Shown here is a 396-nucleotide RNA sequence from Chlamydia caviae, a member of the family "Bacterial RNase P class A". It is annotated as a ribozyme. Rfam's curators put it in the seed alignment. Its family is annotated with tRNA processing, ribonuclease P activity and dimeric ribonuclease P complex in the Gene Ontology.
RNA sequence: CGGAAGAGAAAGGCAACCGCUUUUUAUAUCUCUAGUUAGGUAUACUGAGAGGAAAGUCUGGACUUCAUAAGAAGAGAUACUGGAGAAACUCCAGGGGCCGUAAGGCUACGGAAAGUGCAACAGAAAACACUCCGCUAUAAAAGGGUCUUUUUAUAGACAGGCUGAAAAUUCCUACUUUAAGAGUAGGAGCUAUUAAGGUGACUUAAUAGACAUGCAAACCCUAUCUGAAGCAAGAGAAAAAGUUUUUGUUUCUGCAUAGUGAGGGAUAGUAUUCCUCAUAAACUUUUUCAUAAUCGCUUGAGGGGUAUAGUAAUAUGCCCCCUAGAUGAAUGGUUGCCCUCAAGAUGGUCUUUUCCAUCUUGUAGACAGAAUCCGGCUUACUCUCUCUUCCGAUAU
Number, nucleotide and partner (000 for none) at each position: 001c392002g391003g390004a389005a388006g387007a386008g385009a384010a000011a000012g338013g337014c336015a335016a334017c333018c332019g000020c049021u048022u047023u000024u000025u044026a043027u042028a041029u040030c039031u038032c000033u000034a000035g000036u000037u000038a031039g030040g029041u028042a027043u026044a025045c000046u000047g022048a021049g020050a000051g000052g000053a000054a379055a378056g377057u000058c376059u375060g374061g373062a372063c230064u229065u228066c227067a000068u000069a000070a000071g276072a000073a000074g000075a226076g225077a224078u223079a222080c094081u093082g092083g091084a090085g000086a000087a000088a000089c000090u084091c083092c082093a081094g080095g109096g107097g106098c105099c104100g000101u000102a000103a000104g099105g098106c097107u096108a000109c095110g221111g220112a000113a000114a000115g219116u218117g215118c214119a213120a000121c000122a000123g000124a000125a000126a000127a000128c000129a000130c000131u000132c161133c160134g000135c156136u155137a154138u153139a152140a151141a150142a149143g000144g000145g000146u000147c000148u000149u142150u141151u140152u139153a138154u137155a136156g135157a000158c000159a000160g133161g132162c000163u000164g000165a000166a000167a000168a000169u000170u188171c187172c186173u185174a184175c000176u000177u000178u000179a000180a000181g000182a000183g000184u174185a173186g172187g171188a170189g211190c209191u208192a207193u206194u205195a204196a203197g202198g000199u000200g000201a000202c197203u196204u195205a194206a193207u192208a191209g190210a000211c189212a000213u119214g118215c117216a000217a000218a116219c115220c111221c110222u079223a078224u077225c076226u075227g066228a065229a064230g063231c000232a000233a000234g295235a294236g000237a000238a000239a000240a000241a000242g283243u000244u000245u000246u000247u000248g000249u000250u000251u000252c000253u000254g000255c000256a000257u000258a000259g000260u000261g000262a000263g000264g000265g000266a000267u000268a000269g000270u280271a279272u278273u000274c000275c000276u071277c000278a272279u271280a270281a000282a000283c242284u000285u000286u000287u000288u000289c000290a000291u000292a000293a000294u235295c234296g000297c000298u000299u000300g000301a000302g321303g320304g319305g318306u317307a316308u315309a314310g000311u000312a000313a000314u309315a308316u307317g306318c305319c304320c303321c302322c000323u000324a000325g000326a000327u000328g000329a000330a000331u000332g018333g017334u016335u015336g014337c013338c012339c000340u000341c000342a000343a000344g000345a000346u000347g000348g000349u000350c000351u000352u000353u000354u000355c000356c000357a000358u000359c000360u000361u000362g000363u000364a000365g000366a000367c000368a000369g000370a000371a000372u062373c061374c060375g059376g058377c056378u055379u054380a000381c000382u000383c000384u009385c008386u007387c006388u005389u004390c003391c002392g001393a000394u000395a000396u000